[Rfam]
Shown here is a 201-nucleotide RNA sequence from Panicum virgatum, a member of the family "MIR1435 microRNA precursor family". The organism belongs to Panicum sect. Hiantes, within Eukaryota. The family has 3 seed sequences and 1,765 matches in Rfam 15.1.
RNA sequence: UAGGUUUGUCCUAAGUCAAAUUUAGCUAACUUUGACCAACUCUAGAGAAAAAUAGAGCAACAACUAUACUAACCAACAUAUGCACUAUCAACAUACAUUUCAUGGUGAAUUCGUUGAAACAAAUUUGGUAUUGUAAAUGUUAUUAUUCUUUUUCUAUAAAUUUGAUCAAAGUUGGCUAAAUUUGACUUAGGACAAACGUAA
Numbered sequence: 001u002a003g004g005u006u007u008g009u010c011c012u013a014a015g016u017c018a019a020a021u022u023u024a025g026c027u028a029a030c031u032u033u034g035a036c037c038a039a040c041u042c043u044a045g046a047g048a049a050a051a052a053u054a055g056a057g058c059a060a061c062a063a064c065u066a067u068a069c070u071a072a073c074c075a076a077c078a079u080a081u082g083c084a085c086u087a088u089c090a091a092c093a094u095a096c097a098u099u100u101c102a103u104g105g106u107g108a109a110u111u112c113g114u115u116g117a118a119a120c121a122a123a124u125u126u127g128g129u130a131u132u133g134u135a136a137a138u139g140u141u142a143u144u145a146u147u148c149u150u151u152u153u154c155u156a157u158a159a160a161u162u163u164g165a166u167c168a169a170a171g172u173u174g175g176c177u178a179a180a181u182u183u184g185a186c187u188u189a190g191g192a193c194a195a196a197c198g199u200a201a
Stems, first nucleotide, its partner, number of pairs: 005196005011190016031170005043156008054143001059141004065135004073127001075125002